[Rfam]
RNA sequence: AUCGAACUUCGGGGCGGGGCGAAAUUCCCUACCGGCGGUGAUUUGCAUGUAUGGCAAAAGCCCGCGAGCGCUUAGUAGCUUAUGCUUUCUAAGGUCAGCAGAUCUGGUGAGACUCCAGAGCCGACGGUUAUAGUCCGGAUGAAAGAAGAUCGAC
Numbered sequence: 001a002u003c004g005a006a007c008u009u010c011g012g013g014g015c016g017g018g019g020c021g022a023a024a025u026u027c028c029c030u031a032c033c034g035g036c037g038g039u040g041a042u043u044u045g046c047a048u049g050u051a052u053g054g055c056a057a058a059a060g061c062c063c064g065c066g067a068g069c070g071c072u073u074a075g076u077a078g079c080u081u082a083u084g085c086u087u088u089c090u091a092a093g094g095u096c097a098g099c100a101g102a103u104c105u106g107g108u109g110a111g112a113c114u115c116c117a118g119a120g121c122c123g124a125c126g127g128u129u130a131u132a133g134u135c136c137g138g139a140u141g142a143a144a145g146a147a148g149a150u151c152g153a154c
Stems, first nucleotide, its partner, number of pairs: 003152003007148004017029003031134002033123002035065004060121002068099002103119005125137003
RNA: FMN riboswitch aptamer (RFN element)